[Rfam]
RNA sequence: UGGCCUGAAAUGAUGCUCUGAGUUCAUGUCUCUUCUCUGAGAUGUGUAGUGGAGACAACUGGAUGCAUUUCUGAUCAGGCUU
Numbered sequence: 001u002g003g004c005c006u007g008a009a010a011u012g013a014u015g016c017u018c019u020g021a022g023u024u025c026a027u028g029u030c031u032c033u034u035c036u037c038u039g040a041g042a043u044g045u046g047u048a049g050u051g052g053a054g055a056c057a058a059c060u061g062g063a064u065g066c067a068u069u070u071c072u073g074a075u076c077a078g079g080c081u082u
Base pairs, nucleotide, nucleotide: 002081003080004079005078

Description: This 82-nucleotide RNA from Rhagologus leucostigma belongs to the Rfam family "Small nucleolar RNA SNORD111". A reference for the family is Huttenhofer et al. (2001), "RNomics: an experimental approach that identifies 201 candidates for novel, small, non-messenger RNAs in mouse", EMBO J. The family's consensus secondary structure was predicted with RNAalifold. The organism belongs to Rhagologus, within Eukaryota. It scores 49 bits against the family's covariance model.